[Rfam]
Shown here is a 109-nucleotide RNA sequence from Limosilactobacillus antri, a member of the family "SAM-III riboswitch aptamer (SMK box)". A reference for the family is Fuchs et al. (2007), "S-adenosylmethionine directly inhibits binding of 30S ribosomal subunits to the SMK box translational riboswitch RNA", Proc Natl Acad Sci U S A. The organism belongs to Limosilactobacillus antri, within Bacteria. Pairs were carried over by alignment from the consensus structure, which is taken from published work.
RNA sequence: CUUCGUUAUGAAGCAAAUUCCCGAUAGGAUUCACUUAAUUGUGAAGAUGCCUUGUAACCGCAACUACAAAACUACUACUAGAGUUUCGACUAGAAUAUGGGGGAAUUAA
Numbered sequence: 001c002u003u004c005g006u007u008a009u010g011a012a013g014c015a016a017a018u019u020c021c022c023g024a025u026a027g028g029a030u031u032c033a034c035u036u037a038a039u040u041g042u043g044a045a046g047a048u049g050c051c052u053u054g055u056a057a058c059c060g061c062a063a064c065u066a067c068a069a070a071a072c073u074a075c076u077a078c079u080a081g082a083g084u085u086u087c088g089a090c091u092a093g094a095a096u097a098u099g100g101g102g103g104a105a106u107u108a109a
Base pairs, nucleotide, nucleotide: 018105019104020103021102022101026052027051028050030045031044032043033042034041058100059099